The family of this 149-nucleotide RNA from Phocoena sinus is "U12 minor spliceosomal RNA". Gene Ontology terms of the family: pre-mRNA branch point binding, U12 snRNP and mRNA branch site recognition. For this family Rfam cites "Pre-mRNA splicing: the discovery of a new spliceosome doubles the challenge" (Tarn and Steitz, Trends Biochem Sci, 1997). A search with the family's covariance model found it, with a score of 117 bits. Rfam 15.1 lists 2,106 matches to the family in 1,170 species. It is annotated as a spliceosomal small nuclear RNA. The organism belongs to Phocoena, within Eukaryota.
RNA sequence: AUGCCUUAAACUUAUGAGUAAGGAAAAUAAUGAUUUGGGGUGGUGCCAAAUCCUUACUGCUAAUGUGAGGUGAAUUUUUGAGUGGGUAAAAGUUGCCCCUAAGGUGACCUGCUUAUUUUGCAGGAUGCCUGGGAGUUGUGAUUUGGCAA
Numbered sequence: 001a002u003g004c005c006u007u008a009a010a011c012u013u014a015u016g017a018g019u020a021a022g023g024a025a026a027a028u029a030a031u032g033a034u035u036u037g038g039g040g041u042g043g044u045g046c047c048a049a050a051u052c053c054u055u056a057c058u059g060c061u062a063a064u065g066u067g068a069g070g071u072g073a074a075u076u077u078u079u080g081a082g083u084g085g086g087u088a089a090a091a092g093u094u095g096c097c098c099c100u101a102a103g104g105u106g107a108c109c110u111g112c113u114u115a116u117u118u119u120g121c122a123g124g125a126u127g128c129c130u131g132g133g134a135g136u137u138g139u140g141a142u143u144u145g146g147c148a149a
Base pairs, nucleotide, nucleotide: 004023005022006021007020008019032052033051034050035049036048038047039046053069054068055067056066057065083149085147087145090144091143092142093141094140095139096138099133100132102130103129104128105127106126108124109123110122111121112120